[Rfam]
RNA sequence: UCCCGUUGCAUGUGCGGGUUAUCGCAUGCACCUCCCUGUUGGACUGACCCGGGCUUCGGCCUGGGUCUUUUU
Numbered sequence: 001u002c003c004c005g006u007u008g009c010a011u012g013u014g015c016g017g018g019u020u021a022u023c024g025c026a027u028g029c030a031c032c033u034c035c036c037u038g039u040u041g042g043a044c045u046g047a048c049c050c051g052g053g054c055u056u057c058g059g060c061c062u063g064g065g066u067c068u069u070u071u072u
Base pairs, nucleotide, nucleotide: 008029009028010027011026012025013024014023047066048065049064050063051062052061053060054059
Dot-bracket structure: .......(((((((........))))))).................((((((((....))))))))......

Rfam assigns this 72-nucleotide sequence from Primorskyibacter flagellatus to the family "Singlet oxygen resistance RNA X".
Pairs were carried over by alignment from the consensus structure.
About the family: SorX (RSs2461)like SorY is a singlet oxygen induced sRNA that counteracts oxidative stress by targeting mRNA for a transporter in Rhodobacter. It also has an impact on resistance against organic hydroperoxides. It targets SD sequence of potA mRNA via an aSD sequence.
Rfam classes the family as a small RNA.
Its family is annotated with response to photooxidative stress in the Gene Ontology.